[Rfam]
RNA sequence: GGCGAUAAACGCGCGUGCAAUAACCAGACCGGACCCGGGUGCGAACCCCGGCGGCUCCACCAAAUCCUCUCGCUCGUUGGGCGGGUCUUGCGGGGCCGAAUUAGGAUCGACGGAUGGCUAAAGACGUUGCUUUCGCCCGAAUGGGCUCCGUCAAAAGCCCGUAAACAGUAGUUGCCAACGACAACUCUGCUGAAGAGUUCGCCCUCGCUGCGUAA
Numbered sequence: 001g002g003c004g005a006u007a008a009a010c011g012c013g014c015g016u017g018c019a020a021u022a023a024c025c026a027g028a029c030c031g032g033a034c035c036c037g038g039g040u041g042c043g044a045a046c047c048c049c050g051g052c053g054g055c056u057c058c059a060c061c062a063a064a065u066c067c068u069c070u071c072g073c074u075c076g077u078u079g080g081g082c083g084g085g086u087c088u089u090g091c092g093g094g095g096c097c098g099a100a101u102u103a104g105g106a107u108c109g110a111c112g113g114a115u116g117g118c119u120a121a122a123g124a125c126g127u128u129g130c131u132u133u134c135g136c137c138c139g140a141a142u143g144g145g146c147u148c149c150g151u152c153a154a155a156a157g158c159c160c161g162u163a164a165a166c167a168g169u170a171g172u173u174g175c176c177a178a179c180g181a182c183a184a185c186u187c188u189g190c191u192g193a194a195g196a197g198u199u200c201g202c203c204c205u206c207g208c209u210g211c212g213u214a215a
Stems, first nucleotide, its partner, number of pairs: 001137005013127004025116002029113003035051005052098007138150002141147001
The record is a 215-nucleotide sequence from Marinicauda algicola, which matches "permuted transfer-messenger RNA" in Rfam.
The family's consensus secondary structure is taken from published work.
It scores 128 bits against the family's covariance model.
The organism belongs to Marinicauda, within Bacteria.